Rfam assigns this 203-nucleotide RNA from Accipiter nisus to the family "Small nucleolar RNA SNORA74". Pairs were carried over by alignment from the consensus structure, which was predicted with PFOLD. U19 belongs to the H/ACA class of snoRNAs. snoRNAs bind a number of proteins (including dyskerin, Gar1p and Nop10p in the case of the H/ACA class) to form snoRNP complexes. The organism belongs to Accipiter, within Eukaryota. Rfam classes the family as an H/ACA-box small nucleolar RNA.
RNA sequence: UCCAGUGGUAGUCGGCUGUCCAGAGCAGUACUGUGCCUGUGAUAGUGUUACACUGCUGGGAGAUAAAUAUCAGUUAUUUCUUCUGGCUGCUGUUGUCACCGUUCUGGAGACAGCUGAUGCCAAAAAGAAGUGACAUUGUGCUUCUCUGAGAGUGCACUAAAGAUUUGCUUUCCCUCUUUAGUGCUAGUCUGGAAGCACACAUA
Numbered sequence: 001u002c003c004a005g006u007g008g009u010a011g012u013c014g015g016c017u018g019u020c021c022a023g024a025g026c027a028g029u030a031c032u033g034u035g036c037c038u039g040u041g042a043u044a045g046u047g048u049u050a051c052a053c054u055g056c057u058g059g060g061a062g063a064u065a066a067a068u069a070u071c072a073g074u075u076a077u078u079u080c081u082u083c084u085g086g087c088u089g090c091u092g093u094u095g096u097c098a099c100c101g102u103u104c105u106g107g108a109g110a111c112a113g114c115u116g117a118u119g120c121c122a123a124a125a126a127g128a129a130g131u132g133a134c135a136u137u138g139u140g141c142u143u144c145u146c147u148g149a150g151a152g153u154g155c156a157c158u159a160a161a162g163a164u165u166u167g168c169u170u171u172c173c174c175u176c177u178u179u180a181g182u183g184c185u186a187g188u189c190u191g192g193a194a195g196c197a198c199a200c201a202u203a
Base pairs, nucleotide, nucleotide: 001060002059003058004057005056006055007054008053009052011051012050015046016045017044018043019042020041021039022038023037067136068135070133071132072131074129075128081126082125084123087119090116092114094112095111096110097109099107100106138198139197140196141195142194143193144192145191154184155183156182158180159179160178161177162176163175